[Rfam]
RNA sequence: GAGCGGCUCCGGGGUCGGUGAAAGUCCGAGCCGGCGGUGACAGUCCGCGACCCAUCUGCCAGCAGAUGGUUGAAUCGGUGGAAUUCCGAUACCGACGGUGAAAGUCCGGAUGGGAGGAGCAACGG
Numbered sequence: 001g002a003g004c005g006g007c008u009c010c011g012g013g014g015u016c017g018g019u020g021a022a023a024g025u026c027c028g029a030g031c032c033g034g035c036g037g038u039g040a041c042a043g044u045c046c047g048c049g050a051c052c053c054a055u056c057u058g059c060c061a062g063c064a065g066a067u068g069g070u071u072g073a074a075u076c077g078g079u080g081g082a083a084u085u086c087c088g089a090u091a092c093c094g095a096c097g098g099u100g101a102a103a104g105u106c107c108g109g110a111u112g113g114g115a116g117g118a119g120c121a122a123c124g125g
Base pairs, nucleotide, nucleotide: 003123006120007119008118009117010116016028017027018026030105031104032094033093034048035047036046037045043092044091052069053068074090075089076088077087078086096108097107098106

This 125-nucleotide RNA from Schaalia hyovaginalis belongs to the Rfam family "FMN riboswitch aptamer (RFN element)". A search with the family's covariance model found it, with a score of 94 bits.